[Rfam]
Rfam assigns this 90-nucleotide RNA sequence from Protea cynaroides to the family "Small nucleolar RNA snoR26". A search with the family's covariance model found it, with a score of 82 bits. A reference for the family is Brown et al. (2001), "Multiple snoRNA gene clusters from Arabidopsis", RNA. Taxonomically the source falls in Protea (Eukaryota, Streptophytina, Tracheophyta, Magnoliopsida). Rfam classes the family as a C/D-box small nucleolar RNA.

RNA sequence: AGAGCAUCAAUGAUGUGUAGUAUUCCUUUGUUAUCCUUGCACUUUGAUUGUUAGUGAAGAAGCUUAUGGGGAUUGGUUACUGAGAUGCUC
Numbered sequence: 001a002g003a004g005c006a007u008c009a010a011u012g013a014u015g016u017g018u019a020g021u022a023u024u025c026c027u028u029u030g031u032u033a034u035c036c037u038u039g040c041a042c043u044u045u046g047a048u049u050g051u052u053a054g055u056g057a058a059g060a061a062g063c064u065u066a067u068g069g070g071g072a073u074u075g076g077u078u079a080c081u082g083a084g085a086u087g088c089u090c
Base pairs, nucleotide, nucleotide: 002090003089004088005087006086007085008084